[Rfam]
RNA: ZMP/ZTP riboswitch aptamer (pfl RNA motif)
RNA sequence: UAAACUAUGCGUAACUGGCGGAGCAUGGGGAACCAUGAGGGAGCGCAUAGAUAAACAUGCCGUACGCCUGGGCAGAGGUA
Dot-bracket structure: ..(.((((((((..(([[[[....((((....))))..))..)))))))).).....((((...]]]]..))))......